[Rfam]
RNA sequence: GACAAUAGCAUAAUAGGUUAACUCAAGGGUGGCUGGCAUCACUCCCAGUUUUUUAGAAGGGGGGUGGUGCUAUGAUGACGGUAUAUGAAAGCAUGUCUCUCAUGAUUGCGUUCGGAGUGUUAAUUAUAGCGCUGCUGUCAUUUAAUCAAAAAAAAAUAAUCCACCCUUGAGUUCGUGGCUCAGGUGGAUUAUUUCUGUCUGCUGCUAGCCCCCUUGCAGGGAACCAAGCUAUUGUUAUGGCUGAAGGUGCUCCAACACCUUCA
Numbered sequence: 001g002a003c004a005a006u007a008g009c010a011u012a013a014u015a016g017g018u019u020a021a022c023u024c025a026a027g028g029g030u031g032g033c034u035g036g037c038a039u040c041a042c043u044c045c046c047a048g049u050u051u052u053u054u055a056g057a058a059g060g061g062g063g064g065u066g067g068u069g070c071u072a073u074g075a076u077g078a079c080g081g082u083a084u085a086u087g088a089a090a091g092c093a094u095g096u097c098u099c100u101c102a103u104g105a106u107u108g109c110g111u112u113c114g115g116a117g118u119g120u121u122a123a124u125u126a127u128a129g130c131g132c133u134g135c136u137g138u139c140a141u142u143u144a145a146u147c148a149a150a151a152a153a154a155a156a157u158a159a160u161c162c163a164c165c166c167u168u169g170a171g172u173u174c175g176u177g178g179c180u181c182a183g184g185u186g187g188a189u190u191a192u193u194u195c196u197g198u199c200u201g202c203u204g205c206u207a208g209c210c211c212c213c214u215u216g217c218a219g220g221g222a223a224c225c226a227a228g229c230u231a232u233u234g235u236u237a238u239g240g241c242u243g244a245a246g247g248u249g250c251u252c253c254a255a256c257a258c259c260u261u262c263a
Stems, first nucleotide, its partner, number of pairs: 001236005007230003011226001016210005022171008031161002034158001039067003043064004077139007113131002181197003211221002242263008
The family of this 263-nucleotide RNA from Siminovitchia fortis is "BsrG". Its family is annotated with toxin activity and autolysis in the Gene Ontology. Lineage of the source: Bacteria > Bacillati > Bacillota > Bacillaceae > Siminovitchia. The family's RNA type in Rfam is small RNA. About the family: bsrE, bsrG and bsrH pair through intermolecular interactions with antisense sRNAs. They form type I toxin/antitoxin system that includes an mRNA encoding for a short, toxic peptide (bsrE, bsrG and bsrH) and an antitoxin that is comprised of an antisense RNA. bsrG encodes a 39-amino-acid toxin, and the 180 nucleotide antisense sRNA called SR4 acts as the antitoxin (they overlap by 123 nucleotides). SR4 interaction with the 3'UTR of bsrG RNA promotes bsrG degradation and inhibits its translation. BsrG interferes with cell envelope biosynthesis, causes membrane invaginations and delocalisation of the cell wall synthesis and initiates autolysis. bsrE RNA encodes 30 amino-acid toxin peptide. The literature on the family includes a 2016 paper in RNA Biol by Muller et al., "A multistress responsive type I toxin-antitoxin system: bsrE/SR5 from the B. subtilis chromosome".